[Rfam]
RNA sequence: GGUUUAUAAAGAAGAGGUUAGAGACAGGCUCUAAGACCCUCUGGCAACCUGGAAGAUCCAAGGUGCCAAUUCCUGCCUAUAGAGAAUAUCCUCUAUGGGAAAUAUAAAUU
Numbered sequence: 001g002g003u004u005u006a007u008a009a010a011g012a013a014g015a016g017g018u019u020a021g022a023g024a025c026a027g028g029c030u031c032u033a034a035g036a037c038c039c040u041c042u043g044g045c046a047a048c049c050u051g052g053a054a055g056a057u058c059c060a061a062g063g064u065g066c067c068a069a070u071u072c073c074u075g076c077c078u079a080u081a082g083a084g085a086a087u088a089u090c091c092u093c094u095a096u097g098g099g100a101a102a103u104a105u106a107a108a109u110u
Stems, first nucleotide, its partner, number of pairs: 001110008013042005021031003025075004043067004048063002050060004071102001076099009